[Rfam]
RNA sequence: AGGAGGAACAACCCCAGUGGCUGGGGCAGCUCUGGAAACCUGGAUUCAGCCCCUGCAGUAACUCCGGGGCUCUCCGUCUGCAGGGCCUGGAGGCUCCGGGUGGGG
Numbered sequence: 001a002g003g004a005g006g007a008a009c010a011a012c013c014c015c016a017g018u019g020g021c022u023g024g025g026g027c028a029g030c031u032c033u034g035g036a037a038a039c040c041u042g043g044a045u046u047c048a049g050c051c052c053c054u055g056c057a058g059u060a061a062c063u064c065c066g067g068g069g070c071u072c073u074c075c076g077u078c079u080g081c082a083g084g085g086c087c088u089g090g091a092g093g094c095u096c097c098g099g100g101u102g103g104g105g
Base pairs, nucleotide, nucleotide: 002097003096004095005094009089010088012085013084014083019078020077021076023074024073025072028071029070030069031068032067033066034065035064036063040058041057042056